[Rfam]
RNA: Group II catalytic intron D1-D4-7
RNA sequence: CCUGUUAUAUGGCUAACAGUAGUCUAGGGAUAGUGCAUAGUUGGUAACGACUUUGUGCGGAGCUUCCUGACAAUGAAUCCCUGAUUUAUCGGUCAAUAAAAUCGUGAGAGGAUAUUGAGAGAGAAUGAAUAGCACAUUCUUGAGGAG
Numbered sequence: 001c002c003u004g005u006u007a008u009a010u011g012g013c014u015a016a017c018a019g020u021a022g023u024c025u026a027g028g029g030a031u032a033g034u035g036c037a038u039a040g041u042u043g044g045u046a047a048c049g050a051c052u053u054u055g056u057g058c059g060g061a062g063c064u065u066c067c068u069g070a071c072a073a074u075g076a077a078u079c080c081c082u083g084a085u086u087u088a089u090c091g092g093u094c095a096a097u098a099a100a101a102u103c104g105u106g107a108g109a110g111g112a113u114a115u116u117g118a119g120a121g122a123g124a125a126u127g128a129a130u131a132g133c134a135c136a137u138u139c140u141u142g143a144g145g146a147g
Stems, first nucleotide, its partner, number of pairs: 002019006027068004033058005039052005081092004093118004102109002122140006